[Rfam]
RNA sequence: GGCCACUCGUCAGGAGAGAGUUGCCGCCCCAGCGGCGGCCGCCGAAGGCGCAGGGCCCAACCGCCCGAACGCUCAGGCAAAAGGACUGACAGGAACGC
Numbered sequence: 001g002g003c004c005a006c007u008c009g010u011c012a013g014g015a016g017a018g019a020g021u022u023g024c025c026g027c028c029c030c031a032g033c034g035g036c037g038g039c040c041g042c043c044g045a046a047g048g049c050g051c052a053g054g055g056c057c058c059a060a061c062c063g064c065c066c067g068a069a070c071g072c073u074c075a076g077g078c079a080a081a082a083g084g085a086c087u088g089a090c091a092g093g094a095a096c097g098c
Base pairs, nucleotide, nucleotide: 006093007092009090010089011088012087013086020039021038022037023036041078042077043076044074045073048072049071050070054065055064

This 98-nucleotide RNA sequence from Acidovorax sp. Leaf160 belongs to the Rfam family "Glycine riboswitch aptamer". The base pairs follow the family's consensus structure.